[Rfam]
RNA sequence: AAAGCAGGCUGCAAUUGCAGUGCUUCCUUCUGUGGGAGUACUGCCAUUUUCCUGCUAAGAGUGACUCUUGUUAACGCUGUUCUUCGGCUUCACCUACACGGUGGUGAAACCGUUUGUUCUUAACAUGUACAAGC
Number, nucleotide and partner (000 for none) at each position: 001a000002a000003a056004g055005c054006a053007g052008g051009c000010u000011g000012c000013a000014a000015u000016u000017g000018c043019a042020g041021u040022g039023c038024u037025u036026c035027c000028u000029u000030c000031u000032g000033u000034g000035g026036g025037a024038g023039u022040a021041c020042u019043g018044c000045c000046a000047u000048u000049u000050u000051c008052c007053u006054g005055c004056u003057a000058a000059g000060a000061g000062u000063g000064a000065c000066u000067c127068u000069u125070g124071u123072u122073a121074a120075c000076g118077c000078u000079g000080u000081u000082c000083u000084u000085c112086g111087g110088c000089u108090u107091c106092a105093c104094c103095u000096a000097c000098a000099c000100g000101g000102u000103g094104g093105u092106g091107a090108a089109a000110c087111c086112g085113u000114u000115u000116g000117u000118u076119c000120u074121u073122a072123a071124c070125a069126u000127g067128u000129a000130c000131a000132a000133g000134c000
This 134-nucleotide RNA sequence from Tauraco erythrolophus belongs to the Rfam family "Small nucleolar RNA SNORA69".
NCBI's taxonomy places the organism under Eukaryota, Opisthokonta, Gnathostomata, Dinosauria, Tauraco.
It is annotated as an H/ACA-box small nucleolar RNA.
Gene Ontology terms of the family: nucleolus and RNA processing.
U69 is a member of the H/ACA class of small nucleolar RNAs (snoRNAs) which act as guides in the the modification of uridines to pseudouridines.
Rfam 15.1 lists 808 matches to the family in 584 species.